The record is a 182-nucleotide RNA from Lentimonas sp. CC11, which matches "6S / SsrS RNA" in Rfam. The family's consensus secondary structure is taken from published work. The literature on the family includes a 2000 paper in Cell by Wassarman and Storz, "6S RNA regulates E. coli RNA polymerase activity". E. coli 6S RNA was the first non coding RNA to be sequenced, but its function was unknown until recently. The source organism's lineage runs through Bacteria, Pseudomonadati, Verrucomicrobiota and Lentimonas. It is annotated as a non-coding RNA gene.

RNA sequence: UCAACCCUGCGGUGUUCGACCUUAAUCGGAGUAUCUGUCCUUUACUCUUUUGAACUCGGGAAUUGAAACCUUGGAGGUGGCUGUCCAGCCGUCAACCGGAAGACAAAGACUGACAAGGAGGUUCCCACCUUAGACACAAAAGGCCCAAGAACUCCCCCUUAUACGGCACAUGUGGGGCACUA
Numbered sequence: 001u002c003a004a005c006c007c008u009g010c011g012g013u014g015u016u017c018g019a020c021c022u023u024a025a026u027c028g029g030a031g032u033a034u035c036u037g038u039c040c041u042u043u044a045c046u047c048u049u050u051u052g053a054a055c056u057c058g059g060g061a062a063u064u065g066a067a068a069c070c071u072u073g074g075a076g077g078u079g080g081c082u083g084u085c086c087a088g089c090c091g092u093c094a095a096c097c098g099g100a101a102g103a104c105a106a107a108g109a110c111u112g113a114c115a116a117g118g119a120g121g122u123u124c125c126c127a128c129c130u131u132a133g134a135c136a137c138a139a140a141a142g143g144c145c146c147a148a149g150a151a152c153u154c155c156c157c158c159u160u161a162u163a164c165g166g167c168a169c170a171u172g173u174g175g176g177g178c179a180c181u182a
Base pairs, nucleotide, nucleotide: 005177006176007175008174009173010172011171012169013168014167015166017165018164031152032151034149036147037146039143040142058126059125060124062122063121064120072115073114076111077110078109084103085102089099090098091097